Description:
Rfam assigns this 56-nucleotide sequence to the family "DUF3800-VI RNA". It is annotated as a cis-regulatory element.
[Rfam]
RNA sequence: CGGUUGGGAGGGCUGCGGUUUCGCGGUCCGUUGGGGCUCUAAGCCUCACUCAGCUG
Numbered sequence: 001c002g003g004u005u006g007g008g009a010g011g012g013c014u015g016c017g018g019u020u021u022c023g024c025g026g027u028c029c030g031u032u033g034g035g036g037c038u039c040u041a042a043g044c045c046u047c048a049c050u051c052a053g054c055u056g
Stems, first nucleotide, its partner, number of pairs: 001056008010029007032048005